A member of the RNA family "Histone 3' UTR stem-loop" from Sitophilus oryzae, 45 nucleotides long.
It scores 37 bits against the family's covariance model.
RNA sequence: AAAUCGGCUCUUUUCAGAGCCACAAACUUGUUCAAAAUGAAGAAA
Numbered sequence: 001a002a003a004u005c006g007g008c009u010c011u012u013u014u015c016a017g018a019g020c021c022a023c024a025a026a027c028u029u030g031u032u033c034a035a036a037a038u039g040a041a042g043a044a045a
Stems, first nucleotide, its partner, number of pairs: 006021006

Rfam classes the family as a cis-regulatory element. Rfam links the family to the GO term mRNA 3'-end processing by stem-loop binding and cleavage. The literature on the family includes a 1995 paper in Nucleic Acids Res by Williams and Marzluff, "The sequence of the stem and flanking sequences at the 3' end of histone mRNA are critical determinants for the binding of the stem-loop binding protein".